[Rfam]
Nucleotides: 059
Base pairs, nucleotide, nucleotide: 002056003055004054005053006052007051008050012046013045014044015043016042017041020040021039022038
Number, partner (000 for none) and nucleotide at each position: 001000c002056g003055g004054g005053g006052c007051c008050g009000u010000g011000g012046c013045a014044c015043u016042g017041u018000a019000u020040g021039a022038g023000a024000u025000u026000c027000a028000u029000g030000u031000a032000g033000g034000c035000u036000u037000u038022c039021u040020c041017a042016c043015a044014g045013u046012g047000a048000a049000c050008c051007g052006g053005u054004c055003u056002c057000u058000u059000u

Source information:
The family of this 59-nucleotide RNA from Ictalurus punctatus is "mir-128 microRNA precursor family". The family's consensus secondary structure was predicted with RNAalifold. Rfam's curators put it in the seed alignment.